[Rfam]
RNA sequence: UGUGGCUGGUAGGCUGGGAUAAGUUGCAGUGCUCUAUCUGUAGCCAGUAUUGCACUUGUUCCGUCCUGUUGGCCAUGG
Numbered sequence: 001u002g003u004g005g006c007u008g009g010u011a012g013g014c015u016g017g018g019a020u021a022a023g024u025u026g027c028a029g030u031g032c033u034c035u036a037u038c039u040g041u042a043g044c045c046a047g048u049a050u051u052g053c054a055c056u057u058g059u060u061c062c063g064u065c066c067u068g069u070u071g072g073c074c075a076u077g078g
Base pairs, nucleotide, nucleotide: 004074005073006072009069010068011067012066013065016062017061018060019059020058022056023055024054026053027052028051029050030049031048032047033046
A member of the RNA family "mir-92 microRNA precursor family" from Branchiostoma lanceolatum, 78 nucleotides long. It scores 57 bits against the family's covariance model. The organism belongs to Branchiostoma, within Eukaryota. Gene Ontology terms of the family: miRNA-mediated post-transcriptional gene silencing and RISC complex.